Source information
This 78-nucleotide sequence from Alligator mississippiensis belongs to the Rfam family "mir-19 microRNA precursor family". The organism belongs to Alligator, within Eukaryota. The base pairs follow the family's consensus structure, which was predicted with RNAalifold. Gene Ontology terms of the family: RISC complex and miRNA-mediated post-transcriptional gene silencing.

RNA sequence: GCUUACAGUCAGUUUUGCAGGUUUGCAUCCCAGCUUAUAUCCAUUGCUGUGCAAAUCCAUGCAAAACUGACUGUGGUG
Numbered sequence: 001g002c003u004u005a006c007a008g009u010c011a012g013u014u015u016u017g018c019a020g021g022u023u024u025g026c027a028u029c030c031c032a033g034c035u036u037a038u039a040u041c042c043a044u045u046g047c048u049g050u051g052c053a054a055a056u057c058c059a060u061g062c063a064a065a066a067c068u069g070a071c072u073g074u075g076g077u078g
Stems, first nucleotide, its partner, number of pairs: 003076017020058002022055007032048003
Dot-bracket structure: ..((((((((((((((((((((((((((...(((...........)))))))))).)).)))))))))))))))))..